[Rfam]
RNA sequence: CUCUUAUUAAGAGCGGUGGAGGGAUGAGGCCCGACGAAGCCCAGCAACCUUCAGGCAAGUUUGUCUGAAACGGUGCUAAAUCCUGCAGGCGUUAUGUCUGACAGAUAAGAA
Numbered sequence: 001c002u003c004u005u006a007u008u009a010a011g012a013g014c015g016g017u018g019g020a021g022g023g024a025u026g027a028g029g030c031c032c033g034a035c036g037a038a039g040c041c042c043a044g045c046a047a048c049c050u051u052c053a054g055g056c057a058a059g060u061u062u063g064u065c066u067g068a069a070a071c072g073g074u075g076c077u078a079a080a081u082c083c084u085g086c087a088g089g090c091g092u093u094a095u096g097u098c099u100g101a102c103a104g105a106u107a108a109g110a111a
Base pairs, nucleotide, nucleotide: 002110003109004108005107006106007105008104013042015041016040017039021032022031023030027084028083029082043077044076045075046074048073049072050069051068052067053066054065055064081103086100087099088098089097090096091095

A member of the RNA family "SAM riboswitch aptamer (S box leader)" from Bacillus aerolatus, 111 nucleotides long.
A search with the family's covariance model found it, with a score of 81 bits.
The source organism's lineage runs through Bacteria, Bacillati, Bacilli, Bacillaceae and Bacillus.
Rfam links the family to the GO term regulation of gene expression.